[Rfam]
RNA sequence: ACGAUGUUCCGCUGCAGUGAAUUGUUCUGUAUGAGCAUCUG
Numbered sequence: 001a002c003g004a005u006g007u008u009c010c011g012c013u014g015c016a017g018u019g020a021a022u023u024g025u026u027c028u029g030u031a032u033g034a035g036c037a038u039c040u041g
Stems, first nucleotide, its partner, number of pairs: 003039007013031005

About this RNA:
A member of the RNA family "Ribosomal protein L19 leader" from Caldibacillus thermoamylovorans, 41 nucleotides long. The family's RNA type in Rfam is cis-regulatory leader. The match comes from Rfam's covariance-model search (47 bits). About the family: This family is a putative r-protein leader autoregulatory structure found in B. subtilis and other low-GC Gram-positive bacteria. It is located in the 5' untranslated regions of mRNAs encoding ribosomal protein L19 (rplS). NCBI's taxonomy places the organism under Bacteria, Bacillati, Bacillota, Bacilli, Caldibacillus.